[Rfam]
RNA sequence: GGCACAAAUCUGAAGUAGAGUAGAUUAGUAGGAUUAGCUGAUACUAGUAACCUACUCUACUUCGAAUUGGGGCCC
Numbered sequence: 001g002g003c004a005c006a007a008a009u010c011u012g013a014a015g016u017a018g019a020g021u022a023g024a025u026u027a028g029u030a031g032g033a034u035u036a037g038c039u040g041a042u043a044c045u046a047g048u049a050a051c052c053u054a055c056u057c058u059a060c061u062u063c064g065a066a067u068u069g070g071g072g073c074c075c
Stems, first nucleotide, its partner, number of pairs: 001074003005070001007068003011064013025050003029046002033042003